[Rfam]
RNA: MIR2863 microRNA precursor family
Organism: Eragrostis curvula
RNA sequence: GGGUAACCUCCGACCCACACUAGUUCAACCAAAUGAACUAGAUUUCCAAAAUGAGCUCAUUUUGGAAAUCUAGUUCAUUUGGUUGAACUAAAGUGGGUCGAAGGUUACCC
Numbered sequence: 001g002g003g004u005a006a007c008c009u010c011c012g013a014c015c016c017a018c019a020c021u022a023g024u025u026c027a028a029c030c031a032a033a034u035g036a037a038c039u040a041g042a043u044u045u046c047c048a049a050a051a052u053g054a055g056c057u058c059a060u061u062u063u064g065g066a067a068a069u070c071u072a073g074u075u076c077a078u079u080u081g082g083u084u085g086a087a088c089u090a091a092a093g094u095g096g097g098u099c100g101a102a103g104g105u106u107a108c109c110c
Stems, first nucleotide, its partner, number of pairs: 001110008011100002014097005021090027049062005